[Rfam]
RNA sequence: GCCUCGUUCGUCUAGCGGCCUAGGACAUCGCCCUUUCAAGGCGGAGAUCACGGGUUCGAAUCCCGUACGAGGUA
Numbered sequence: 001g002c003c004u005c006g007u008u009c010g011u012c013u014a015g016c017g018g019c020c021u022a023g024g025a026c027a028u029c030g031c032c033c034u035u036u037c038a039a040g041g042c043g044g045a046g047a048u049c050a051c052g053g054g055u056u057c058g059a060a061u062c063c064c065g066u067a068c069g070a071g072g073u074a
Stems, first nucleotide, its partner, number of pairs: 001073007010026004028044005050066005
Notes: The family of this 74-nucleotide sequence from Ktedonosporobacter rubrisoli is "tRNA". Its family is annotated with triplet codon-amino acid adaptor activity in the Gene Ontology. The source organism's lineage runs through Bacteria, Bacillati, Chloroflexota, Ktedonosporobacteraceae and Ktedonosporobacter. The family's consensus secondary structure is taken from published work. The family's RNA type in Rfam is transfer RNA.